[Rfam]
RNA sequence: CUUGCUCCUGAUUGUCCAAACGCAAUUCUUGUGAAUUUUAUUGAACUAAAGCCAAGAAUUGUGGAUGGACAUCUUGAGCUGG
Numbered sequence: 001c002u003u004g005c006u007c008c009u010g011a012u013u014g015u016c017c018a019a020a021c022g023c024a025a026u027u028c029u030u031g032u033g034a035a036u037u038u039u040a041u042u043g044a045a046c047u048a049a050a051g052c053c054a055a056g057a058a059u060u061g062u063g064g065a066u067g068g069a070c071a072u073c074u075u076g077a078g079c080u081g082g
Stems, first nucleotide, its partner, number of pairs: 002081001004079004010073003014070005021063011
RNA: mir-219 microRNA precursor family